The record is a 66-nucleotide sequence from Bipolaris sorokiniana, which matches "bZIP non canonical Hac1/Xbp1 intron" in Rfam. The family's RNA type in Rfam is small RNA. The base pairs follow the family's consensus structure, which was predicted with RNAfold. The source organism's lineage runs through Eukaryota, Opisthokonta, Pezizomycotina, Pleosporaceae and Bipolaris. Rfam's curators put it in the seed alignment. Rfam describes the family as follows. bZIP intron RNA is a non-canonical intron that was first reported in HAC1 gene in yeast and XBP1 gene in Metazoa.
RNA sequence: CCGAAUUCGACUCGACACAAUACUCUGCCGCGGUAUUGUGCGACCUGCAGUGUCAGUCGAAUUCGG
Dot-bracket structure: ((((((.(((((......((((((.......))))))....(((.......)))))))).))))))
Numbered sequence: 001c002c003g004a005a006u007u008c009g010a011c012u013c014g015a016c017a018c019a020a021u022a023c024u025c026u027g028c029c030g031c032g033g034u035a036u037u038g039u040g041c042g043a044c045c046u047g048c049a050g051u052g053u054c055a056g057u058c059g060a061a062u063u064c065g066g
Stems, first nucleotide, its partner, number of pairs: 001066006008059005019037006042054003